[Rfam]
Nucleotides: 070
Base pairs, nucleotide, nucleotide: 014028015027016026017025018024033050034049035048037046038045039044
Number, partner (000 for none) and nucleotide at each position: 001000g002000a003000a004000u005000c006000u007000a008000g009000u010000u011000a012000u013000u014028u015027c016026a017025a018024u019000c020000u021000c022000a023000g024018g025017u026016u027015g028014a029000c030000g031000c032000a033050a034049g035048a036000a037046u038045c039044c040000g041000u042000a043000u044039g045038g046037a047000g048035u049034c050033u051000a052000a053000u054000u055000g056000u057000u058000u059000u060000a061000u062000a063000c064000a065000a066000a067000a068000u069000g070000g
The record is a 70-nucleotide RNA from Candidatus Pelagibacter communis, which matches "bablM sRNA" in Rfam. It is one of the family's seed sequences. NCBI's taxonomy places the organism under Bacteria, Pseudomonadota, Alphaproteobacteria, Candidatus Pelagibacterales, Candidatus Pelagibacter communis. For this family Rfam cites "Identification of candidate structured RNAs in the marine organism 'Candidatus Pelagibacter ubique'" (Meyer et al., BMC Genomics, 2009). Rfam classes the family as a small RNA.